[Rfam]
Rfam assigns this 156-nucleotide sequence from Saccharothrix sp. ST-888 to the family "c-di-AMP riboswitch aptamer (ydaO/yuaA leader)". The base pairs follow the family's consensus structure.
RNA sequence: UGCACUUCACCGCAGUGCACGGCAGGAGCGGGGGACCCACAGGUAAGUCGCCGAGCCCGGAGAUCCGGGACGGCUAGGGGCGAAGCCGCAUCCGUGCGGCCGGGCUACUCCCUGCCCGAACCCGACAGCUCACCUCGCAGGCGUCGGAGAGGAUUU
Numbered sequence: 001u002g003c004a005c006u007u008c009a010c011c012g013c014a015g016u017g018c019a020c021g022g023c024a025g026g027a028g029c030g031g032g033g034g035a036c037c038c039a040c041a042g043g044u045a046a047g048u049c050g051c052c053g054a055g056c057c058c059g060g061a062g063a064u065c066c067g068g069g070a071c072g073g074c075u076a077g078g079g080g081c082g083a084a085g086c087c088g089c090a091u092c093c094g095u096g097c098g099g100c101c102g103g104g105c106u107a108c109u110c111c112c113u114g115c116c117c118g119a120a121c122c123c124g125a126c127a128g129c130u131c132a133c134c135u136c137g138c139a140g141g142c143g144u145c146g147g148a149g150a151g152g153a154u155u156u
Stems, first nucleotide, its partner, number of pairs: 008143001010141002016027001018025001028138006038077001078123003086099004102117004
A search with the family's covariance model found it, with a score of 67 bits.